Shown here is a 176-nucleotide RNA sequence from Vagococcus zengguangii, a member of the family "Lysine riboswitch aptamer".
Riboswitches are metabolite binding domains within certain messenger RNAs that serve as precision sensors for their corresponding targets.
Its family is annotated with lysine biosynthetic process in the Gene Ontology.
RNA sequence: UGAUGAGGUAGAGGUCGCGGUAAUUAAGAAUGAUAGUCGAGUUUGAGGAAACAUUGACACUAUCAGGAGGGAAAACCGCCGAAAUGUAUACUAGCCUCACUAGUAUAUGUUGGGACAACAGUUAAGAGCUGUUGGACUGUCUCAGUCUGUGAAGAUUGAGUUGCGCUAUUUUUGUC
Numbered sequence: 001u002g003a004u005g006a007g008g009u010a011g012a013g014g015u016c017g018c019g020g021u022a023a024u025u026a027a028g029a030a031u032g033a034u035a036g037u038c039g040a041g042u043u044u045g046a047g048g049a050a051a052c053a054u055u056g057a058c059a060c061u062a063u064c065a066g067g068a069g070g071g072a073a074a075a076c077c078g079c080c081g082a083a084a085u086g087u088a089u090a091c092u093a094g095c096c097u098c099a100c101u102a103g104u105a106u107a108u109g110u111u112g113g114g115a116c117a118a119c120a121g122u123u124a125a126g127a128g129c130u131g132u133u134g135g136a137c138u139g140u141c142u143c144a145g146u147c148u149g150u151g152a153a154g155a156u157u158g159a160g161u162u163g164c165g166c167u168a169u170u171u172u173u174g175u176c
Stems, first nucleotide, its partner, number of pairs: 006171006017079005024072001031065007083111012112138002116134007141160006